RNA sequence: ACAUUACAAAGGCAAACCCAUCAAAAGAUGGCGACGCAAAGCUAAAGGGGCUAAAGCAUUAUGCCAUGCCAGCCAGUUGCAAUG
Number, nucleotide and partner (000 for none) at each position: 001a000002c000003a000004u000005u000006a000007c000008a000009a000010a000011g000012g037013c036014a000015a000016a000017c000018c031019c030020a029021u028022c027023a000024a000025a000026a000027g022028a021029u020030g019031g018032c000033g000034a000035c000036g013037c012038a000039a000040a078041g077042c076043u075044a000045a000046a000047g074048g073049g070050g069051c068052u000053a000054a000055a000056g064057c063058a062059u000060u000061a000062u058063g057064c056065c000066a000067u000068g051069c050070c049071a000072g000073c048074c047075a043076g042077u041078u040079g000080c000081a000082a000083u000084g000

A member of the RNA family "c-di-GMP-I riboswitch aptamer" from Acetivibrio thermocellus, 84 nucleotides long.